Selenocysteine transfer RNA: a 93-nucleotide RNA sequence from Vallitalea pronyensis. NCBI's taxonomy places the organism under Bacteria, Bacillati, Clostridia, Vallitaleaceae, Vallitalea.
[Rfam]
RNA sequence: GGGAUAGAAUGGGUUCUGGUGGAUCCAAGAGACUUCAAAUCUUUUUUCGGGUGGUAAGACCGUCCGAGGUAGGUUCGAUUCCUACUCUUUCCC
Numbered sequence: 001g002g003g004a005u006a007g008a009a010u011g012g013g014u015u016c017u018g019g020u021g022g023a024u025c026c027a028a029g030a031g032a033c034u035u036c037a038a039a040u041c042u043u044u045u046u047u048c049g050g051g052u053g054g055u056a057a058g059a060c061c062g063u064c065c066g067a068g069g070u071a072g073g074u075u076c077g078a079u080u081c082c083u084a085c086u087c088u089u090u091c092c093c
Base pairs, nucleotide, nucleotide: 001093002092003091004090006088007087008086011026012025013024014023015022016021027045028044029043030042031041032040047067048066049065050064051063070084071083072082073081
Source information:
Pairs were carried over by alignment from the consensus structure, which is taken from published work. The match comes from Rfam's covariance-model search (70 bits).